RNA sequence: CCGGCCCCGGUUCACCUCGUCAGCGAGGACCCGGCGCC
Dot-bracket structure: ..(((.((((....(((((....)))))..)))).)))
L31-Actinobacteria ribosomal protein leader: a 38-nucleotide RNA sequence from Pseudonocardia broussonetiae. Taxonomically the source falls in Pseudonocardia (Bacteria, Actinomycetota, Actinomycetes, Pseudonocardiaceae). The literature on the family includes a 2020 paper in BMC Microbiol by Eckert and Weinberg, "Discovery of 20 novel ribosomal leader candidates in bacteria and archaea".